[Rfam]
Shown here is a 283-nucleotide sequence from Nannospalax galili, a member of the family "Mason-Pfizer monkey virus packaging signal". A search with the family's covariance model found it, with a score of 171 bits.
RNA sequence: UGGCGCCCAACGUGGGGCCUGGAUACUGGGGGCACAUCGUGAGGGAGACAACGGAAAAAGGAAGGAGUGCACUCGCUAAAUCUCAAGCAAUUCGGAGACGUGUCGUGGGAGCCUGCCGCGACUGAACCAAAGGUAAGUUGUGCCGUCUGAUCAUGGGGCAAGAAUUAAGCCAGCAUCAGAUUUAUGUUACACAGUUGAGGGAGGCUCUCAAGACAAGAGGAAUAAAGGUUAAGACUGUGGAUUUAUUUCAUUUUUUUUGAUUUUGUAAAGGACAUUUGUCCCU
Numbered sequence: 001u002g003g004c005g006c007c008c009a010a011c012g013u014g015g016g017g018c019c020u021g022g023a024u025a026c027u028g029g030g031g032g033c034a035c036a037u038c039g040u041g042a043g044g045g046a047g048a049c050a051a052c053g054g055a056a057a058a059a060g061g062a063a064g065g066a067g068u069g070c071a072c073u074c075g076c077u078a079a080a081u082c083u084c085a086a087g088c089a090a091u092u093c094g095g096a097g098a099c100g101u102g103u104c105g106u107g108g109g110a111g112c113c114u115g116c117c118g119c120g121a122c123u124g125a126a127c128c129a130a131a132g133g134u135a136a137g138u139u140g141u142g143c144c145g146u147c148u149g150a151u152c153a154u155g156g157g158g159c160a161a162g163a164a165u166u167a168a169g170c171c172a173g174c175a176u177c178a179g180a181u182u183u184a185u186g187u188u189a190c191a192c193a194g195u196u197g198a199g200g201g202a203g204g205c206u207c208u209c210a211a212g213a214c215a216a217g218a219g220g221a222a223u224a225a226a227g228g229u230u231a232a233g234a235c236u237g238u239g240g241a242u243u244u245a246u247u248u249c250a251u252u253u254u255u256u257u258u259g260a261u262u263u264u265g266u267a268a269a270g271g272a273c274a275u276u277u278g279u280c281c282c283u
Stems, first nucleotide, its partner, number of pairs: 006031003012026003037051001039049002087134002091130002099124002104120005141160003146157004167208001169205003217258006226244005268283001270281004